[Rfam]
RNA sequence: UAAAAACGAAUAGAUUUGCCGUAGACAGUAGGUGCGUAAGCUUAAUUUCCUACCGAGGUUUUAGAUAAAUGAAACUAGAGCUUUUAUGUCUACCAUUGCGUUAGAAAUAAAAGCUUUUUUAAUUGUACG
Numbered sequence: 001u002a003a004a005a006a007c008g009a010a011u012a013g014a015u016u017u018g019c020c021g022u023a024g025a026c027a028g029u030a031g032g033u034g035c036g037u038a039a040g041c042u043u044a045a046u047u048u049c050c051u052a053c054c055g056a057g058g059u060u061u062u063a064g065a066u067a068a069a070u071g072a073a074a075c076u077a078g079a080g081c082u083u084u085u086a087u088g089u090c091u092a093c094c095a096u097u098g099c100g101u102u103a104g105a106a107a108u109a110a111a112a113g114c115u116u117u118u119u120u121a122a123u124u125g126u127a128c129g
Stems, first nucleotide, its partner, number of pairs: 028053005034041002080114008089105004